Rfam assigns this 75-nucleotide RNA sequence from Patiria miniata to the family "mir-219 microRNA precursor family". NCBI's taxonomy places the organism under Eukaryota, Bilateria, Deuterostomia, Asterinidae, Patiria. A reference for the family is Lim et al. (2003), "Vertebrate microRNA genes", Science.
RNA sequence: UCGCCCAUGAUUGUCCAAACGCAAUUCUUGUUCAAUUGUAAACUUCAAGAACUGUGUAUGGACAUCAGUGGCUGA
Numbered sequence: 001u002c003g004c005c006c007a008u009g010a011u012u013g014u015c016c017a018a019a020c021g022c023a024a025u026u027c028u029u030g031u032u033c034a035a036u037u038g039u040a041a042a043c044u045u046c047a048a049g050a051a052c053u054g055u056g057u058a059u060g061g062a063c064a065u066c067a068g069u070g071g072c073u074g075a
Base pairs, nucleotide, nucleotide: 002074003073005071006070007069008067009066010065011064013063014062015061016060017059020056021055022054023053025051026050027049028048029047030046